This 135-nucleotide RNA from Acanthochromis polyacanthus belongs to the Rfam family "Small nucleolar RNA SNORA14". The match comes from Rfam's covariance-model search (44 bits). Pairs were carried over by alignment from the consensus structure, which was predicted with RNAfold. Rfam describes the family as follows. ACA14 is a member of the H/ACA class of snoRNA that guide the sites of modification of uridines to pseudouridines. NCBI's taxonomy places the organism under Eukaryota, Craniata, Euteleostomi, Pomacentridae, Acanthochromis.

RNA sequence: AAGCAUCCUUAGUAAACCCCCCGGUUGCUAUUUGUGGUCUCUGGGACAAGGAAGGGUGCAAGAUCAAUCUUAGAAUCAUCCAAAGCUGAGAGCCAUGUGUCAGUAGCUCUUGGUUAUUUCACCUCUAAAACAAAA
Numbered sequence: 001a002a003g004c005a006u007c008c009u010u011a012g013u014a015a016a017c018c019c020c021c022c023g024g025u026u027g028c029u030a031u032u033u034g035u036g037g038u039c040u041c042u043g044g045g046a047c048a049a050g051g052a053a054g055g056g057u058g059c060a061a062g063a064u065c066a067a068u069c070u071u072a073g074a075a076u077c078a079u080c081c082a083a084a085g086c087u088g089a090g091a092g093c094c095a096u097g098u099g100u101c102a103g104u105a106g107c108u109c110u111u112g113g114u115u116a117u118u119u120c121a122c123c124u125c126u127a128a129a130a131c132a133a134a135a
Base pairs, nucleotide, nucleotide: 003059004058005057006056009051010050020045021044022043023042024041027038028037064134068130070128071127072126073125074124084115085114086113087112088111089110090109092107093106098103